[Rfam]
The record is a 170-nucleotide RNA sequence from Firmicutes bacterium AF22-6AC, which matches "Clostridiales-1 RNA" in Rfam. The family's RNA type in Rfam is small RNA. NCBI's taxonomy places the organism under Bacteria, Bacillati, Bacillota.
RNA sequence: AGAUACCAGAUUUAAACGGCAGAGGCCGACCGUGCUUGCAUGGGGAGGCAGGUGCCGAUUUAAAUCGCCAAAACAUGAGGAUGCAGCGAUUUGCGGAAGCAAAUCCGCGGAAUCCGAAUGUUUUCAGAAGUGCGGGAGCUGCGAAGCAGCGGAGCAAUUCGUAGGUAUCG
Number, nucleotide and partner (000 for none) at each position: 001a000002g169003a168004u167005a166006c165007c164008a000009g000010a065011u064012u063013u062014a000015a000016a000017c057018g056019g055020c054021a053022g000023a000024g000025g049026c048027c047028g000029a000030c043031c042032g041033u040034g039035c000036u000037u000038g000039c034040a033041u032042g031043g030044g000045g000046a000047g027048g026049c025050a000051g000052g000053u021054g020055c019056c018057g017058a000059u000060u000061u000062a013063a012064a011065u010066c000067g000068c000069c000070a124071a123072a122073a121074c120075a119076u118077g000078a000079g115080g114081a113082u112083g000084c000085a000086g108087c107088g105089a104090u103091u102092u101093g100094c099095g000096g000097a000098a000099g094100c093101a092102a091103a090104u089105c088106c000107g087108c086109g000110g000111a000112a082113u081114c080115c079116g000117a000118a076119u075120g074121u073122u072123u071124u070125c000126a000127g160128a159129a158130g000131u156132g155133c154134g000135g000136g000137a000138g150139c149140u148141g147142c000143g000144a000145a000146g000147c141148a140149g139150c138151g000152g000153a000154g133155c132156a131157a000158u129159u128160c127161g000162u000163a000164g007165g006166u005167a004168u003169c002170g000